[Rfam]
RNA sequence: ACCAGUGUCUUACCAGACAAGGUUAGAUCUAUGUACCAUUGUCUAAUACUGUCUGGUAAUGCCGUUGGU
Numbered sequence: 001a002c003c004a005g006u007g008u009c010u011u012a013c014c015a016g017a018c019a020a021g022g023u024u025a026g027a028u029c030u031a032u033g034u035a036c037c038a039u040u041g042u043c044u045a046a047u048a049c050u051g052u053c054u055g056g057u058a059a060u061g062c063c064g065u066u067g068g069u
Base pairs, nucleotide, nucleotide: 002068003067004066005065006064007063009061010059011058012057013056014055015054016053017052018051019050022047023046024045025044026043027042